[Rfam]
RNA sequence: GAUUGCUCAUAGCAAACCAUCGGAAACGGUGGGACGCAAAGCCACGGGUCUAAGGACGUUUGUCUACGAUCGCCGGGUUGCCAAU
Numbered sequence: 001g002a003u004u005g006c007u008c009a010u011a012g013c014a015a016a017c018c019a020u021c022g023g024a025a026a027c028g029g030u031g032g033g034a035c036g037c038a039a040a041g042c043c044a045c046g047g048g049u050c051u052a053a054g055g056a057c058g059u060u061u062g063u064c065u066a067c068g069a070u071c072g073c074c075g076g077g078u079u080g081c082c083a084a085u
Stems, first nucleotide, its partner, number of pairs: 012037002017032006040079004045075003048070003055064003
Shown here is an 85-nucleotide sequence from Paenalicyclobacillus ferrooxydans, a member of the family "c-di-GMP-I riboswitch aptamer". The match comes from Rfam's covariance-model search (78 bits). Pairs were carried over by alignment from the consensus structure, which is taken from published work. The source organism's lineage runs through Bacteria, Bacillota, Caryophanales, Alicyclobacillaceae and Paenalicyclobacillus. On this family, see Sudarsan et al., Science 2008: "Riboswitches in Eubacteria Sense the Second Messenger Cyclic Di-GMP".